[Rfam]
RNA sequence: UUUAGAGAUAGAGGCGCAAGGUUUAAAAGUAUCUUCAUGGAGAUAAGCACGUAGAAGUGAAGAGAAAGGAAACAUUGCCGAAGUGUGUAGUUAAUGCUUUAAAACUAUACAACUGGUCUUAUAUAGAAUAUAUAUAAGAUUGUCACAAAUAAUGUUUGUGGAGAGCUAUCCAAUGG
Numbered sequence: 001u002u003u004a005g006a007g008a009u010a011g012a013g014g015c016g017c018a019a020g021g022u023u024u025a026a027a028a029g030u031a032u033c034u035u036c037a038u039g040g041a042g043a044u045a046a047g048c049a050c051g052u053a054g055a056a057g058u059g060a061a062g063a064g065a066a067a068g069g070a071a072a073c074a075u076u077g078c079c080g081a082a083g084u085g086u087g088u089a090g091u092u093a094a095u096g097c098u099u100u101a102a103a104a105c106u107a108u109a110c111a112a113c114u115g116g117u118c119u120u121a122u123a124u125a126g127a128a129u130a131u132a133u134a135u136a137a138g139a140u141u142g143u144c145a146c147a148a149a150u151a152a153u154g155u156u157u158g159u160g161g162a163g164a165g166c167u168a169u170c171c172a173a174u175g176g
Stems, first nucleotide, its partner, number of pairs: 007170005016078004021073004032063007082114003085110008115141011143161007
RNA: Lysine riboswitch aptamer